[Rfam]
RNA sequence: GCGCCCGUAGCUCAGCCGGAUAGAGCGUUCGCCUCCGGAGCGAAAGGUCACAGGUUCGAAUCCUGUCGGGCGCA
Number, nucleotide and partner (000 for none) at each position: 001g073002c072003g071004c070005c069006c068007g067008u000009a000010g026011c025012u024013c023014a000015g000016c000017c000018g000019g000020a000021u000022a000023g013024a012025g011026c010027g000028u044029u043030c042031g041032c040033c000034u000035c000036c000037g000038g000039a000040g032041c031042g030043a029044a028045a000046g000047g000048u000049c000050a066051c065052a064053g063054g062055u000056u000057c000058g000059a000060a000061u000062c054063c053064u052065g051066u050067c007068g006069g005070g004071c003072g002073c001074a000
RNA: tRNA